[Rfam]
RNA sequence: GGGGACCUUCGGGGCCCUUCACAACCGGGGCUGACCCCCCGCAAAGCUACGGAAGACAGAAA
Numbered sequence: 001g002g003g004g005a006c007c008u009u010c011g012g013g014g015c016c017c018u019u020c021a022c023a024a025c026c027g028g029g030g031c032u033g034a035c036c037c038c039c040c041g042c043a044a045a046g047c048u049a050c051g052g053a054a055g056a057c058a059g060a061a062a
Stems, first nucleotide, its partner, number of pairs: 001018004006014003027040004
RNA: L2-Alphaproteobacteria ribosomal protein leader